MIR168 microRNA precursor family: a 121-nucleotide RNA. Its family is annotated with RISC complex and miRNA-mediated post-transcriptional gene silencing in the Gene Ontology. Rfam's curators put it in the seed alignment.
RNA sequence: CACUUCGCGGUCUCUAAUUCGCUUGGUGCAGGUCGGGAACCACUACAUCCGCUGUUUUCGUAGAAACCGGCGGUGAAUUGGAUCCCGCCUUGCAUCAACUGAAUCGGAGGCCGCGGUGAAU
Numbered sequence: 001c002a003c004u005u006c007g008c009g010g011u012c013u014c015u016a017a018u019u020c021g022c023u024u025g026g027u028g029c030a031g032g033u034c035g036g037g038a039a040c041c042a043c044u045a046c047a048u049c050c051g052c053u054g055u056u057u058u059c060g061u062a063g064a065a066a067c068c069g070g071c072g073g074u075g076a077a078u079u080g081g082a083u084c085c086c087g088c089c090u091u092g093c094a095u096c097a098a099c100u101g102a103a104u105c106g107g108a109g110g111c112c113g114c115g116g117u118g119a120a121u
Stems, first nucleotide, its partner, number of pairs: 013108002017104004023098010034087005040081002